[Rfam]
The family of this 556-nucleotide sequence from Scyliorhinus torazame is "Vertebrate telomerase RNA". The literature on the family includes a 2000 paper in Cell by Chen et al., "Secondary structure of vertebrate telomerase RNA". Its family is annotated with telomere maintenance via telomerase, telomerase activity and telomerase catalytic core complex in the Gene Ontology. Telomerase is a ribonucleoprotein reverse transcriptase that synthesises telomeric DNA. Telomerase RNAs differ greatly in sequence and structure between vertebrates, ciliates and yeasts, but they share a 5' pseudoknot structure close to the template sequence. Vertebrate telomerase RNAs have a 3' H/ACA snoRNA-like domain. The family is grouped with related families in Rfam's "Telomerase clan".
RNA sequence: UCCGUUCGCCGUGGGGGCGGUGUCGUUUUUUACUAACCCUAAUUUGGUGUAAGUGGUUGGGCCUCCCUCACGCUGCGGGAAACCUCGCUGUUUUCUUGGCUAACUUUCAGCGAGAAGGUGAGGAGGGUUGGCGGCAAAAAGGUUGGGCAGCAACGGCGAGCGAACAAAAAAAGUUAGAGCCGAGGCGCCGUUUUUUCCCCCCCCGCGGCCUGGUCUGAGGGUAACAAGGCCCUGCGGGAGAGGCGCACAAGCAAUGGGGGCCCCGGUCCGGCUAACGGUAGAGGAGGCUGGCCCUCAUCGCUUUCCAGGCCCAGCCACUCCGGGCCGCGGUCAGCCCCGGCUUCCCCCUCGGGGGGGGGCCUAAUGCUGCCGCGAAGAGUUCGGCUCUGUCAGCCCGGCCGGGCCAGGGUGGAGGCCGGCACAGAGGGACACAGGACCGGGGCGCCGGGGAUAGCAACUUCCCGCAGGGGACAUUAAAUAUCAGUGACCAGUGGCUUCCAUGUGGCUGCAUCUCCCGAAGCAAUGGGAGCUGCAAGGCUGCCCUGGUCAUACAUAC
Dot-bracket structure: ...(.((((.(.(((((..(((((.........................................(((((.............(((((((........[[[[[[[[[)))))))....))))).............................................]]].]]]..]]]...)))))........))))).).)))).)....................(((((((...................................................((((.((..........(.(((((.(((.........(((((.((((...((((...............))))....))))))))).((((.....))))........))).))))).).....))))))...........................................))))))).................((((.(.(((...........((((..((((........))))..)))).....)))).))))........
Numbered sequence: 001u002c003c004g005u006u007c008g009c010c011g012u013g014g015g016g017g018c019g020g021u022g023u024c025g026u027u028u029u030u031u032a033c034u035a036a037c038c039c040u041a042a043u044u045u046g047g048u049g050u051a052a053g054u055g056g057u058u059g060g061g062c063c064u065c066c067c068u069c070a071c072g073c074u075g076c077g078g079g080a081a082a083c084c085u086c087g088c089u090g091u092u093u094u095c096u097u098g099g100c101u102a103a104c105u106u107u108c109a110g111c112g113a114g115a116a117g118g119u120g121a122g123g124a125g126g127g128u129u130g131g132c133g134g135c136a137a138a139a140a141g142g143u144u145g146g147g148c149a150g151c152a153a154c155g156g157c158g159a160g161c162g163a164a165c166a167a168a169a170a171a172a173g174u175u176a177g178a179g180c181c182g183a184g185g186c187g188c189c190g191u192u193u194u195u196u197c198c199c200c201c202c203c204c205g206c207g208g209c210c211u212g213g214u215c216u217g218a219g220g221g222u223a224a225c226a227a228g229g230c231c232c233u234g235c236g237g238g239a240g241a242g243g244c245g246c247a248c249a250a251g252c253a254a255u256g257g258g259g260g261c262c263c264c265g266g267u268c269c270g271g272c273u274a275a276c277g278g279u280a281g282a283g284g285a286g287g288c289u290g291g292c293c294c295u296c297a298u299c300g301c302u303u304u305c306c307a308g309g310c311c312c313a314g315c316c317a318c319u320c321c322g323g324g325c326c327g328c329g330g331u332c333a334g335c336c337c338c339g340g341c342u343u344c345c346c347c348c349u350c351g352g353g354g355g356g357g358g359g360c361c362u363a364a365u366g367c368u369g370c371c372g373c374g375a376a377g378a379g380u381u382c383g384g385c386u387c388u389g390u391c392a393g394c395c396c397g398g399c400c401g402g403g404c405c406a407g408g409g410u411g412g413a414g415g416c417c418g419g420c421a422c423a424g425a426g427g428g429a430c431a432c433a434g435g436a437c438c439g440g441g442g443c444g445c446c447g448g449g450g451a452u453a454g455c456a457a458c459u460u461c462c463c464g465c466a467g468g469g470g471a472c473a474u475u476a477a478a479u480a481u482c483a484g485u486g487a488c489c490a491g492u493g494g495c496u497u498c499c500a501u502g503u504g505g506c507u508g509c510a511u512c513u514c515c516c517g518a519a520g521c522a523a524u525g526g527g528a529g530c531u532g533c534a535a536g537g538c539u540g541c542c543c544u545g546g547u548c549a550u551a552c553a554u555a556c
Stems, first nucleotide, its partner, number of pairs: 004210001006208004011203001013201005020188005066123005084114007099180003102175003105171003231468007289418004294414002306407001308405005314399003326374005332369004339361004376388004486548004491543001493542003507534004513528004

Source information
The family has 37 seed sequences and 523 matches in Rfam 15.1. The family's RNA type in Rfam is non-coding RNA gene.